[Rfam]
Nucleotides: 084
Base pairs, nucleotide, nucleotide: 020084021083022082023081025079026078027077028076030074031073032072033071034070035069038066039065040064041063042062043061044060045059046058047057048056
Number, partner (000 for none) and nucleotide at each position: 001000c002000g003000c004000a005000g006000u007000a008000a009000c010000g011000a012000g013000u014000g015000g016000a017000g018000a019000g020084u021083a022082a023081c024000g025079a026078g027077u028076a029000a030074c031073g032072a033071g034070c035069a036000a037000u038066g039065c040064a041063a042062a043061g044060c045059c046058c047057g048056c049000a050000c051000c052000a053000u054000g055000u056048g057047c058046g059045g060044g061043c062042u063041u064040u065039g066038c067000a068000u069035u070034g071033c072032u073031c074030g075000u076028u077027a078026c079025u080000c081023g082022u083021u084020a